[Rfam]
The family of this 81-nucleotide RNA sequence from Rhodnius prolixus is "drz-agam-1 ribozyme". The base pairs follow the family's consensus structure, which is taken from published work. The match comes from Rfam's covariance-model search (39 bits). For this family Rfam cites "Widespread occurrence of self-cleaving ribozymes" (Webb et al., Science, 2009).

RNA sequence: GGGAGCAAAAAACUGAUCUCUACCUCCCCGAGGUGCUCCCUGGGCAACUGUUCAACAAAUUGAGCAGGCUAACAGAGACAG
Numbered sequence: 001g002g003g004a005g006c007a008a009a010a011a012a013c014u015g016a017u018c019u020c021u022a023c024c025u026c027c028c029c030g031a032g033g034u035g036c037u038c039c040c041u042g043g044g045c046a047a048c049u050g051u052u053c054a055a056c057a058a059a060u061u062g063a064g065c066a067g068g069c070u071a072a073c074a075g076a077g078a079c080a081g
Base pairs, nucleotide, nucleotide: 013081014080015079017077019075022034023033024032045068048067049066050065051064052063053062054061